[Rfam]
RNA sequence: GCCCUGGUAGCUCAGUGGAUAGAGCAACCCCCUCCUAAGGGGUAGGUCGCACGUUCGAUUCGUGCUCAGGGCG
Numbered sequence: 001g002c003c004c005u006g007g008u009a010g011c012u013c014a015g016u017g018g019a020u021a022g023a024g025c026a027a028c029c030c031c032c033u034c035c036u037a038a039g040g041g042g043u044a045g046g047u048c049g050c051a052c053g054u055u056c057g058a059u060u061c062g063u064g065c066u067c068a069g070g071g072c073g
Base pairs, nucleotide, nucleotide: 001072002071003070004069005068006067007066010025011024012023013022027043028042029041030040031039049065050064051063052062053061

This 73-nucleotide sequence from Nitrosomonas aestuarii belongs to the Rfam family "tRNA". The family's consensus secondary structure is taken from published work. By type it is a transfer RNA. A search with the family's covariance model found it, with a score of 65 bits. Rfam describes the family as follows. Transfer RNA (tRNA) molecules are approximately 80 nucleotides in length. Lineage of the source: Bacteria > Pseudomonadota > Nitrosomonadales > Nitrosomonadaceae > Nitrosomonas.